[Rfam]
RNA sequence: UUGAUGGUCCCCAUUGACUUCCAUAGUAUUUUUACCCCAUACUAUACAGUCAAUGGGGACCAUUAA
Number, nucleotide and partner (000 for none) at each position: 001u000002u000003g000004a000005u000006g061007g060008u059009c058010c057011c056012c055013a054014u053015u052016g000017a050018c049019u000020u000021c000022c000023a000024u044025a043026g042027u041028a040029u000030u000031u000032u000033u000034a000035c000036c000037c000038c000039a000040u028041a027042c026043u025044a024045u000046a000047c000048a000049g018050u017051c000052a015053a014054u013055g012056g011057g010058g009059a008060c007061c006062a000063u000064u000065a000066a000